[Rfam]
RNA sequence: GUGGCUGGACGUCAAGUCGGGAACCCUUCAUGGAUUAUCUGCCAAUCGGCAGGGUAUGUUAUUCAACGAAUAUACUGUCA
Numbered sequence: 001g002u003g004g005c006u007g008g009a010c011g012u013c014a015a016g017u018c019g020g021g022a023a024c025c026c027u028u029c030a031u032g033g034a035u036u037a038u039c040u041g042c043c044a045a046u047c048g049g050c051a052g053g054g055u056a057u058g059u060u061a062u063u064c065a066a067c068g069a070a071u072a073u074a075c076u077g078u079c080a
Base pairs, nucleotide, nucleotide: 036056037055038054039052040051041050042049043048057072058071059070060069
Dot-bracket structure: ...................................((((((((....))))).)))((((........))))........